Rfam assigns this 84-nucleotide sequence from Anaerocolumna aminovalerica to the family "NiCo (Nickel/Cobalt) riboswitch aptamer". Pairs were carried over by alignment from the consensus structure, which is taken from published work. Its Rfam clan is "NiCo_riboswitches". A search with the family's covariance model found it, with a score of 66 bits.

[Rfam]
RNA sequence: ACAGUACAAUCUGAUCAGGCGGCGAUACUUCGUGCAGCCGGGCUGUUAGACAGCAACAGGAAUAUAAAUGCCUGUGGGACAGUA
Dot-bracket structure: ..........(((..(.(((.((((....))))...)))..(((((...))))).(((((..........)))))..).)))..